RNA sequence: ACAUGUAAAACGCAAACCGUUCGAAAGGGCGGGACGCAAAGUCAGGAGUCUUCUGUACAUAAGUGUACAAUGAUCGUCCGACUGCCAUG
Numbered sequence: 001a002c003a004u005g006u007a008a009a010a011c012g013c014a015a016a017c018c019g020u021u022c023g024a025a026a027g028g029g030c031g032g033g034a035c036g037c038a039a040a041g042u043c044a045g046g047a048g049u050c051u052u053c054u055g056u057a058c059a060u061a062a063g064u065g066u067a068c069a070a071u072g073a074u075c076g077u078c079c080g081a082c083u084g085c086c087a088u089g
Stems, first nucleotide, its partner, number of pairs: 012037002017032006040083004045079003048074003055068004

This 89-nucleotide RNA from Paenibacillus sp. NEAU-GSW1 belongs to the Rfam family "c-di-GMP-I riboswitch aptamer". Rfam links the family to the GO term cyclic-di-GMP binding. Lineage of the source: Bacteria > Bacillota > Caryophanales > Paenibacillaceae > Paenibacillus.